[Rfam]
RNA sequence: AAAGCAGGUUGCAAUUACAGUGAUGCAUUUUGUGGAAGUACUGCCAUUAUCCUGCUGAAAGAAAAGUUAAUUGUUUCUGAUUUUUGCUUUUAUGAGGGUACAAUCAUGGCAGCUUGACAUGAACAAUU
Numbered sequence: 001a002a003a004g005c006a007g008g009u010u011g012c013a014a015u016u017a018c019a020g021u022g023a024u025g026c027a028u029u030u031u032g033u034g035g036a037a038g039u040a041c042u043g044c045c046a047u048u049a050u051c052c053u054g055c056u057g058a059a060a061g062a063a064a065a066g067u068u069a070a071u072u073g074u075u076u077c078u079g080a081u082u083u084u085u086g087c088u089u090u091u092a093u094g095a096g097g098g099u100a101c102a103a104u105c106a107u108g109g110c111a112g113c114u115u116g117a118c119a120u121g122a123a124c125a126a127u128u
Stems, first nucleotide, its partner, number of pairs: 003056006018043005024037001026035001066118005072112001078106005085100006
Dot-bracket structure: ..((((((.........(((((.(.(........).).))))).......)))))).........(((((.(.....(((((..((((((....)))))).))))).....).)))))..........
Description:
The family of this 128-nucleotide sequence from Castor canadensis is "Small nucleolar RNA SNORA69". Its family is annotated with RNA processing and nucleolus in the Gene Ontology. Rfam classes the family as an H/ACA-box small nucleolar RNA. Taxonomically the source falls in Castor (Eukaryota, Chordata, Amniota, Theria).